[Rfam]
Rfam assigns this 234-nucleotide RNA from Firmicutes bacterium CAG:227 to the family "HNH endonuclease-associated RNA and ORF (HEARO) RNA". The organism belongs to Bacillota, within Bacteria.
RNA sequence: GUCAGCUGCCUCUGACCUAGAAUUAAUGUUUUAAAGAGGUUAGAACUUGUAAAAGUUCAAGUUGACUAGCCUAAGUGUCUUGAACACUACGUUAUUUCUGUUAUCACACCUGCAAAUGAUACCCUAGUUUGCAGCUCUGUGCAGGCUCUGUAAACAACUCUGUGAGGUAGGAGUAGUCAACCUGAAGUCUCCGAUUACGGGAAGCAGUUCUAACAUUGGCGAAGGGUAACAAAC
Numbered sequence: 001g002u003c004a005g006c007u008g009c010c011u012c013u014g015a016c017c018u019a020g021a022a023u024u025a026a027u028g029u030u031u032u033a034a035a036g037a038g039g040u041u042a043g044a045a046c047u048u049g050u051a052a053a054a055g056u057u058c059a060a061g062u063u064g065a066c067u068a069g070c071c072u073a074a075g076u077g078u079c080u081u082g083a084a085c086a087c088u089a090c091g092u093u094a095u096u097u098c099u100g101u102u103a104u105c106a107c108a109c110c111u112g113c114a115a116a117u118g119a120u121a122c123c124c125u126a127g128u129u130u131g132c133a134g135c136u137c138u139g140u141g142c143a144g145g146c147u148c149u150g151u152a153a154a155c156a157a158c159u160c161u162g163u164g165a166g167g168u169a170g171g172a173g174u175a176g177u178c179a180a181c182c183u184g185a186a187g188u189c190u191c192c193g194a195u196u197a198c199g200g201g202a203a204g205c206a207g208u209u210c211u212a213a214c215a216u217u218g219g220c221g222a223a224g225g226g227u228a229a230c231a232a233a234c
Base pairs, nucleotide, nucleotide: 001066002065003064004063005062006061007060011044016039017038046055047054048053069220070219071218073216074088075087076086077085078084091214092213093212094211098207099206100205101204106140107139110134111133112132113131114130115129116128117127118230120228121227122226123225124224125223142184143183144182145181149179150178154177155176157174158173159172160171161170
It is annotated as a non-coding RNA gene. The family has 139 seed sequences and 952 matches in Rfam 15.1. For this family Rfam cites "Exceptional structured noncoding RNAs revealed by bacterial metagenome analysis" (Weinberg et al., Nature, 2009).